[Rfam]
RNA sequence: CCAAAUGUUGAAACAUCUGGCUAUAUUCUACCGCCCUUUCAGGGCA
Numbered sequence: 001c002c003a004a005a006u007g008u009u010g011a012a013a014c015a016u017c018u019g020g021c022u023a024u025a026u027u028c029u030a031c032c033g034c035c036c037u038u039u040c041a042g043g044g045c046a
Stems, first nucleotide, its partner, number of pairs: 001020003005016004033045005
Notes:
A member of the RNA family "Acido-Lenti-1 RNA" from Candidatus Moduliflexus flocculans, 46 nucleotides long. By type it is a small RNA. Lineage of the source: Bacteria > Candidatus Moduliflexia > Candidatus Moduliflexales > Candidatus Moduliflexaceae > Candidatus Moduliflexus.